Shown here is an 81-nucleotide sequence from Triticum aestivum, a member of the family "Small nucleolar RNA Z199". It scores 62 bits against the family's covariance model.
RNA sequence: GGGUCAAGUGAUGAGGAAUAAACCAUAAUAUGAUGGAGCUCUUCUCCUCUGAUUCUUAGCAUUUAAGUCUCUGAUGGUACC
Numbered sequence: 001g002g003g004u005c006a007a008g009u010g011a012u013g014a015g016g017a018a019u020a021a022a023c024c025a026u027a028a029u030a031u032g033a034u035g036g037a038g039c040u041c042u043u044c045u046c047c048u049c050u051g052a053u054u055c056u057u058a059g060c061a062u063u064u065a066a067g068u069c070u071c072u073g074a075u076g077g078u079a080c081c
Stems, first nucleotide, its partner, number of pairs: 001081002004079001005076002035047004

It is annotated as a C/D-box small nucleolar RNA.
From the family's description: snoZ199 is a C/D box small nucleolar RNA, which acts as a methylation guide RNA for sites on 18S and 25S rRNA. Rice snoZ199 is reported to be homologous to Arabidopsis snoR13.
Taxonomically the source falls in Triticum (Eukaryota, Tracheophyta, Spermatophyta, Liliopsida).